Overview
A member of the RNA family "Enterobacteria greA leader" from Citrobacter koseri, 123 nucleotides long. Lineage of the source: Bacteria > Pseudomonadota > Enterobacterales > Citrobacter > Citrobacter koseri. Rfam classes the family as a cis-regulatory leader.
[Rfam]
RNA sequence: GUCAUACUACGGCGCAAUGCCCUGGAAAGUAAACGAUGACCCAUAGGGAACUCCAGGGUAAAAUACGUAUCAAAUUGAGAAUUGUAGCUGACCUGGGGCUUUGUACCCGGGUCGGUAUUUUUU
Numbered sequence: 001g002u003c004a005u006a007c008u009a010c011g012g013c014g015c016a017a018u019g020c021c022c023u024g025g026a027a028a029g030u031a032a033a034c035g036a037u038g039a040c041c042c043a044u045a046g047g048g049a050a051c052u053c054c055a056g057g058g059u060a061a062a063a064u065a066c067g068u069a070u071c072a073a074a075u076u077g078a079g080a081a082u083u084g085u086a087g088c089u090g091a092c093c094u095g096g097g098g099c100u101u102u103g104u105a106c107c108c109g110g111g112u113c114g115g116u117a118u119u120u121u122u123u
Stems, first nucleotide, its partner, number of pairs: 001040005010035002014030002041048002057071004087116011